RNA sequence: GCACUGUCACAACGGCUUCCUGACGUGACAGGCAAACCACCAAUGGAGCA
Numbered sequence: 001g002c003a004c005u006g007u008c009a010c011a012a013c014g015g016c017u018u019c020c021u022g023a024c025g026u027g028a029c030a031g032g033c034a035a036a037c038c039a040c041c042a043a044u045g046g047a048g049c050a
Stems, first nucleotide, its partner, number of pairs: 004031007013022002015049003019046002
Background:
Shown here is a 50-nucleotide RNA from Antarcticimicrobium sediminis, a member of the family "SAM/SAH riboswitch aptamer". A reference for the family is Weickhmann et al. (2019), "The structure of the SAM/SAH-binding riboswitch", Nucleic Acids Res. Pairs were carried over by alignment from the consensus structure, which is taken from published work. The match comes from Rfam's covariance-model search (59 bits). The organism belongs to Antarcticimicrobium, within Bacteria.